[Rfam]
RNA sequence: GAUCUUGACGCUGCCCCCCGGCAACCUUACAUUUCAUCUGCUCCCUCGGGGGCUAUGGACAUAAACGGCAGUUUUACUAGCUGGACUGGACUCGGCUGCGAAGCCGACACCUCCACCAAAUAUCCCUUCGUUGGGGGCCUAUGGGGGUGAAACAGGAUCGACAGACUGUGAACGAGCUGAUCUUUGUCCCGGUGAGCCACCACCGUUAUCGGUGCAAAACGUACAGUUGCCAACGACAACCGUGCUCCGGUCGCGCUGGCUGCGUAAGCAGUUCGCAAGACCGAAACUUAAGCCCUUGCGCCUAGCCGCGUAAGGCGGGGUUCGCAGGCACCUGGCAACAGAAGCCUGCACU
Numbered sequence: 001g002a003u004c005u006u007g008a009c010g011c012u013g014c015c016c017c018c019c020g021g022c023a024a025c026c027u028u029a030c031a032u033u034u035c036a037u038c039u040g041c042u043c044c045c046u047c048g049g050g051g052g053c054u055a056u057g058g059a060c061a062u063a064a065a066c067g068g069c070a071g072u073u074u075u076a077c078u079a080g081c082u083g084g085a086c087u088g089g090a091c092u093c094g095g096c097u098g099c100g101a102a103g104c105c106g107a108c109a110c111c112u113c114c115a116c117c118a119a120a121u122a123u124c125c126c127u128u129c130g131u132u133g134g135g136g137g138c139c140u141a142u143g144g145g146g147g148u149g150a151a152a153c154a155g156g157a158u159c160g161a162c163a164g165a166c167u168g169u170g171a172a173c174g175a176g177c178u179g180a181u182c183u184u185u186g187u188c189c190c191g192g193u194g195a196g197c198c199a200c201c202a203c204c205g206u207u208a209u210c211g212g213u214g215c216a217a218a219a220c221g222u223a224c225a226g227u228u229g230c231c232a233a234c235g236a237c238a239a240c241c242g243u244g245c246u247c248c249g250g251u252c253g254c255g256c257u258g259g260c261u262g263c264g265u266a267a268g269c270a271g272u273u274c275g276c277a278a279g280a281c282c283g284a285a286a287c288u289u290a291a292g293c294c295c296u297u298g299c300g301c302c303u304a305g306c307c308g309c310g311u312a313a314g315g316c317g318g319g320g321u322u323c324g325c326a327g328g329c330a331c332c333u334g335g336c337a338a339c340a341g342a343a344g345c346c347u348g349c350a351c352u
Stems, first nucleotide, its partner, number of pairs: 040053005057189005067182002070178004083166001086164003092107005108149007190205004196215002199213003318333004324349006
RNA: Alphaproteobacteria transfer-messenger RNA